Description: Shown here is a 142-nucleotide sequence from Tautonia plasticadhaerens, a member of the family "Group II catalytic intron D1-D4-4". Rfam 15.1 lists 840 matches to the family in 506 species. Group II introns are found in rRNA, tRNA and mRNA of organelles in fungi, plants and protists, and also in mRNA in bacteria. Gene Ontology term of the family: Group II intron splicing.

RNA sequence: CGGUGGGUGCAAGUCCCACCCGGCCAACUCGAUCGCUCCAGCCGGAAGCUAUCGGAGCGGCGGCAGAGCUAACGAAGCCGUCGGAGCCUCCGAGACAACGGGUCGCCCCGGCGACUCGGCGAGCAGGCAGGCCGUAACGCGC
Numbered sequence: 001c002g003g004u005g006g007g008u009g010c011a012a013g014u015c016c017c018a019c020c021c022g023g024c025c026a027a028c029u030c031g032a033u034c035g036c037u038c039c040a041g042c043c044g045g046a047a048g049c050u051a052u053c054g055g056a057g058c059g060g061c062g063g064c065a066g067a068g069c070u071a072a073c074g075a076a077g078c079c080g081u082c083g084g085a086g087c088c089u090c091c092g093a094g095a096c097a098a099c100g101g102g103u104c105g106c107c108c109c110g111g112c113g114a115c116u117c118g119g120c121g122a123g124c125a126g127g128c129a130g131g132c133c134g135u136a137a138c139g140c141g142c
Stems, first nucleotide, its partner, number of pairs: 020045005053092005058083006068073001100117006119135003